[Rfam]
RNA sequence: CCCGCAGCAGGACGAAAAGACCCCGUGGAGCUUUACUACAGCUUGAUAUUGGCGUUAGGACCGAUCUGUGUAGGAUAGGUGGGAGACGUUGAAGCCGGUGCGCCAGCAUCGGUGGAGUCGCUGGUGAAAUACCACCCUGAUGGGUUCGGACGUCUAACCUGCGCCUGUGAUCCAGGUGAGGGACAGUGUUAGGCGGGUAGUUUGACUGGGGUGGUCGCCUCCCAAAGCGUAACGGAGGCGCACAAAGGUUCCCUCAGCACGGUCGGAAAUCGUGCGUAGAGCGUAAGGGUAUAAGGGAGCUUGACUGCGAGACAUACAGGUCGAGCAGGGACGAAAGUCGGUCCUAGUGAACCGGUGGUACCGAGUGGAAGGGCCAUCGAUCAACGGAUAAAAGUUACCCCGGGGAUAACAGGCUGAUACCGCCCGAGCGUUCAUAGCGGCGGCGGUGUUUGGCACCUCGAUGUCGGCUCGUCAUAUCCUGGGGCUGGAGAAGGUCCCAAGGGUCCGGCUGUUCGCCGGUUAAAAUGGCACGCGAGCUGGGUUCAGAACGUCGUGAGACAGUUCGGUCUCUAUCCGCUGUGGGCGUA
Numbered sequence: 001c002c003c004g005c006a007g008c009a010g011g012a013c014g015a016a017a018a019g020a021c022c023c024c025g026u027g028g029a030g031c032u033u034u035a036c037u038a039c040a041g042c043u044u045g046a047u048a049u050u051g052g053c054g055u056u057a058g059g060a061c062c063g064a065u066c067u068g069u070g071u072a073g074g075a076u077a078g079g080u081g082g083g084a085g086a087c088g089u090u091g092a093a094g095c096c097g098g099u100g101c102g103c104c105a106g107c108a109u110c111g112g113u114g115g116a117g118u119c120g121c122u123g124g125u126g127a128a129a130u131a132c133c134a135c136c137c138u139g140a141u142g143g144g145u146u147c148g149g150a151c152g153u154c155u156a157a158c159c160u161g162c163g164c165c166u167g168u169g170a171u172c173c174a175g176g177u178g179a180g181g182g183a184c185a186g187u188g189u190u191a192g193g194c195g196g197g198u199a200g201u202u203u204g205a206c207u208g209g210g211g212u213g214g215u216c217g218c219c220u221c222c223c224a225a226a227g228c229g230u231a232a233c234g235g236a237g238g239c240g241c242a243c244a245a246a247g248g249u250u251c252c253c254u255c256a257g258c259a260c261g262g263u264c265g266g267a268a269a270u271c272g273u274g275c276g277u278a279g280a281g282c283g284u285a286a287g288g289g290u291a292u293a294a295g296g297g298a299g300c301u302u303g304a305c306u307g308c309g310a311g312a313c314a315u316a317c318a319g320g321u322c323g324a325g326c327a328g329g330g331a332c333g334a335a336a337g338u339c340g341g342u343c344c345u346a347g348u349g350a351a352c353c354g355g356u357g358g359u360a361c362c363g364a365g366u367g368g369a370a371g372g373g374c375c376a377u378c379g380a381u382c383a384a385c386g387g388a389u390a391a392a393a394g395u396u397a398c399c400c401c402g403g404g405g406a407u408a409a410c411a412g413g414c415u416g417a418u419a420c421c422g423c424c425c426g427a428g429c430g431u432u433c434a435u436a437g438c439g440g441c442g443g444c445g446g447u448g449u450u451u452g453g454c455a456c457c458u459c460g461a462u463g464u465c466g467g468c469u470c471g472u473c474a475u476a477u478c479c480u481g482g483g484g485c486u487g488g489a490g491a492a493g494g495u496c497c498c499a500a501g502g503g504u505c506c507g508g509c510u511g512u513u514c515g516c517c518g519g520u521u522a523a524a525a526u527g528g529c530a531c532g533c534g535a536g537c538u539g540g541g542u543u544c545a546g547a548a549c550g551u552c553g554u555g556a557g558a559c560a561g562u563u564c565g566g567u568c569u570c571u572a573u574c575c576g577c578u579g580u581g582g583g584c585g586u587a
Stems, first nucleotide, its partner, number of pairs: 001583008010575003014570002022404004027400002029396005035201004042193007051154006058147005064141003068137001078136005085119003094113008158181003162178006204216004217239006240385001242342002248300006254280002257275006281290002305328004311322003330339003353379007361372002413454003417451001418448007428438002465540001466538004470532001471529005478503002481498006505519005546564004550559003
Shown here is a 587-nucleotide part of an RNA from Truepera radiovictrix, a member of the family "Bacterial large subunit ribosomal RNA". Taxonomically the source falls in Truepera radiovictrix (Bacteria, Thermotogati, Deinococcota, Trueperales). The sequence is in the family's curated seed alignment.